[Rfam]
RNA sequence: CAAGAACUGGGUGAUGGGGUUCCCACCCGAGCACUGAGUCGACCAGUCGCUCCAACCGCCACGUUGGCCGAUGACUCCUACUGCAAC
Numbered sequence: 001c002a003a004g005a006a007c008u009g010g011g012u013g014a015u016g017g018g019g020u021u022c023c024c025a026c027c028c029g030a031g032c033a034c035u036g037a038g039u040c041g042a043c044c045a046g047u048c049g050c051u052c053c054a055a056c057c058g059c060c061a062c063g064u065u066g067g068c069c070g071a072u073g074a075c076u077c078c079u080a081c082u083g084c085a086a087c
Base pairs, nucleotide, nucleotide: 010027011026012025013024016078017077018076019075020074021073058068059067060066
The family of this 87-nucleotide RNA sequence from Humibacter ginsenosidimutans is "Fluoride riboswitch aptamer (crcB RNA motif)". Pairs were carried over by alignment from the consensus structure, which is taken from published work. The match comes from Rfam's covariance-model search (40 bits). Lineage of the source: Bacteria > Bacillati > Micrococcales > Microbacteriaceae > Humibacter.